Overview
The record is a 348-nucleotide RNA from Pangasianodon hypophthalmus, which matches "Vertebrate telomerase RNA" in Rfam. The literature on the family includes a 2000 paper in Cell by Chen et al., "Secondary structure of vertebrate telomerase RNA". Telomerase is a ribonucleoprotein reverse transcriptase that synthesises telomeric DNA. Telomerase RNAs differ greatly in sequence and structure between vertebrates, ciliates and yeasts, but they share a 5' pseudoknot structure close to the template sequence. Vertebrate telomerase RNAs have a 3' H/ACA snoRNA-like domain. The family is grouped with related families in Rfam's "Telomerase clan". The match comes from Rfam's covariance-model search (83 bits). Pairs were carried over by alignment from the consensus structure, which is taken from published work.
RNA sequence: UUGUUCAGAGAGUACACCUCCUAACCCUAGGUAAUUUCUUGCUUCCUGUCCGGUGUGAUUACUGUUUUUCUCUCCAGCUUUCAGUAAGUAACAGGAAGUUUGCCAUGGCGCUCCGGUGUUUAUAACAGUUGAAAAAAAAAGCUUGGAGAGUGCUCUCUGAAGCUCAGUGUUUCCGGUUUGCGCGUGCCGUGUUGUGGACAGCCAGGCUGCCGCCAAGAGGUCUCCCCUCUGCCGCAGUGCGCGCGAGCCCGGAGCACACACCACACACUGAGCAGAUCAAACUGAGCAUGGCUGCACUUUGCACAUCCUUCCAGUGAUCAUGCAGAAGUGGCCCCUGCUCAAACACAU
Numbered sequence: 001u002u003g004u005u006c007a008g009a010g011a012g013u014a015c016a017c018c019u020c021c022u023a024a025c026c027c028u029a030g031g032u033a034a035u036u037u038c039u040u041g042c043u044u045c046c047u048g049u050c051c052g053g054u055g056u057g058a059u060u061a062c063u064g065u066u067u068u069u070c071u072c073u074c075c076a077g078c079u080u081u082c083a084g085u086a087a088g089u090a091a092c093a094g095g096a097a098g099u100u101u102g103c104c105a106u107g108g109c110g111c112u113c114c115g116g117u118g119u120u121u122a123u124a125a126c127a128g129u130u131g132a133a134a135a136a137a138a139a140a141g142c143u144u145g146g147a148g149a150g151u152g153c154u155c156u157c158u159g160a161a162g163c164u165c166a167g168u169g170u171u172u173c174c175g176g177u178u179u180g181c182g183c184g185u186g187c188c189g190u191g192u193u194g195u196g197g198a199c200a201g202c203c204a205g206g207c208u209g210c211c212g213c214c215a216a217g218a219g220g221u222c223u224c225c226c227c228u229c230u231g232c233c234g235c236a237g238u239g240c241g242c243g244c245g246a247g248c249c250c251g252g253a254g255c256a257c258a259c260a261c262c263a264c265a266c267a268c269u270g271a272g273c274a275g276a277u278c279a280a281a282c283u284g285a286g287c288a289u290g291g292c293u294g295c296a297c298u299u300u301g302c303a304c305a306u307c308c309u310u311c312c313a314g315u316g317a318u319c320a321u322g323c324a325g326a327a328g329u330g331g332c333c334c335c336u337g338c339u340c341a342a343a344c345a346c347a348u
Base pairs, nucleotide, nucleotide: 005160006159007158008157009156010155011154012153013152014151015150017148042098043097044096045095046094056090057089059087060086061085062084063083064082074141079139080138081137163272164271165270166269167268168267169266172253173252174251176249178247179246180244181243182242183241184240185239186238187237189235190234194213195212196211197210199209200208201207202206216230217229218228219227284340285339286338287337290333291332292331293330294329295328299325300324301323302322303321306317307316